RNA sequence: UUACAAUUAAAGGAUAUUUCUUGCGAUAACUCAAUCAGAAAUAUCUCUUAAUUGUUUGGU
Number, nucleotide and partner (000 for none) at each position: 001u000002u000003a055004c054005a053006a052007u051008u050009a049010a048011a000012g046013g045014a044015u043016a042017u041018u040019u039020c038021u037022u000023g000024c000025g032026a000027u000028a000029a000030c000031u000032c025033a000034a000035u000036c000037a021038g020039a019040a018041a017042u016043a015044u014045c013046u012047c000048u010049u009050a008051a007052u006053u005054g004055u003056u000057u000058g000059g000060u000
The family of this 60-nucleotide RNA sequence from Chanos chanos is "mir-7552 microRNA precursor family". A search with the family's covariance model found it, with a score of 66 bits. Taxonomically the source falls in Chanos (Eukaryota, Otomorpha, Anotophysi, Chanidae).